This 185-nucleotide RNA from Paenibacillus radicis belongs to the Rfam family "c-di-AMP riboswitch aptamer (ydaO/yuaA leader)".

RNA sequence: AUACUUAUAUCGCUGAAUUCUGAUCGAACAGAAACGGGGGAACCAACGCUUGCGUUCAACGCCGUAAGAUGCGAUGAUCGUAAGGCACGGGGUGAAUCGGACGAAAGCGCGCCCGCGCACGUCUGUAGGGAAGCUCUCUAUCCCGAAUCCGUCAGCUAACUCCGUAAGCGAAAUCAAGGAGAGAA
Numbered sequence: 001a002u003a004c005u006u007a008u009a010u011c012g013c014u015g016a017a018u019u020c021u022g023a024u025c026g027a028a029c030a031g032a033a034a035c036g037g038g039g040g041a042a043c044c045a046a047c048g049c050u051u052g053c054g055u056u057c058a059a060c061g062c063c064g065u066a067a068g069a070u071g072c073g074a075u076g077a078u079c080g081u082a083a084g085g086c087a088c089g090g091g092g093u094g095a096a097u098c099g100g101a102c103g104a105a106a107g108c109g110c111g112c113c114c115g116c117g118c119a120c121g122u123c124u125g126u127a128g129g130g131a132a133g134c135u136c137u138c139u140a141u142c143c144c145g146a147a148u149c150c151g152u153c154a155g156c157u158a159a160c161u162c163c164g165u166a167a168g169c170g171a172a173a174u175c176a177a178g179g180a181g182a183g184a185a
Stems, first nucleotide, its partner, number of pairs: 011170004018033005034165006044089001090150003098125006128144004

Overview
The source organism's lineage runs through Bacteria, Bacillati, Bacillota, Bacilli and Paenibacillus.